Overview
Shown here is a 75-nucleotide sequence from Dreissena polymorpha, a member of the family "mir-219 microRNA precursor family". Rfam 15.1 lists 1,318 matches to the family in 774 species.

RNA sequence: CCAGGCGGUGAUUGUCCAAACGCAAUUCUUGUUGUGAAAACUGACCAAGAACUGUGUAUGGACAUCAGUGCCUAC
Number, nucleotide and partner (000 for none) at each position: 001c000002c000003a073004g072005g071006c070007g069008g000009u067010g066011a065012u064013u000014g063015u062016c061017c060018a059019a000020a000021c056022g055023c054024a053025a000026u051027u050028c049029u048030u047031g046032u000033u000034g000035u000036g000037a000038a000039a000040a000041c000042u000043g000044a000045c000046c031047a030048a029049g028050a027051a026052c000053u024054g023055u022056g021057u000058a000059u018060g017061g016062a015063c014064a012065u011066c010067a009068g000069u007070g006071c005072c004073u003074a000075c000
Description
Rfam links the family to the GO terms miRNA-mediated post-transcriptional gene silencing and RISC complex. Taxonomically the source falls in Dreissena (Eukaryota, Metazoa, Myida, Dreissenoidea).